[Rfam]
RNA sequence: AGUGGCUCAUUCACCUUCUUAUGUCAGCCCCAUUGCGAGCGCUACAUAAACUUCGAAUGACGCACUUAAAGGUGCCUGCCGUCCAACUGCUGAUCAUAGCGCUGCUAUUUCAGAACCCGGGCGACACGUUGAGUAAGGCACCGCCUG
Numbered sequence: 001a002g003u004g005g006c007u008c009a010u011u012c013a014c015c016u017u018c019u020u021a022u023g024u025c026a027g028c029c030c031c032a033u034u035g036c037g038a039g040c041g042c043u044a045c046a047u048a049a050a051c052u053u054c055g056a057a058u059g060a061c062g063c064a065c066u067u068a069a070a071g072g073u074g075c076c077u078g079c080c081g082u083c084c085a086a087c088u089g090c091u092g093a094u095c096a097u098a099g100c101g102c103u104g105c106u107a108u109u110u111c112a113g114a115a116c117c118c119g120g121g122c123g124a125c126a127c128g129u130u131g132a133g134u135a136a137g138g139c140a141c142c143g144c145c146u147g
Stems, first nucleotide, its partner, number of pairs: 005063002007060006019049006026043003071142007080123005091112003126134002
Shown here is a 147-nucleotide sequence from Cronobacter sakazakii, a member of the family "Glm Y RNA activator of glmS mRNA". The match comes from Rfam's covariance-model search (114 bits). The organism belongs to Cronobacter sakazakii, within Bacteria. Pairs were carried over by alignment from the consensus structure, which is taken from published work. Its Rfam clan is "Glm clan". Rfam describes the family as follows. This family consists of a number of bacterial RNA genes of around 167 bases in length. The tke1 RNA gene is present in Escherichia coli, Shigella flexneri, Yersinia pestis and Salmonella species where it is found between the yfhK and purL genes.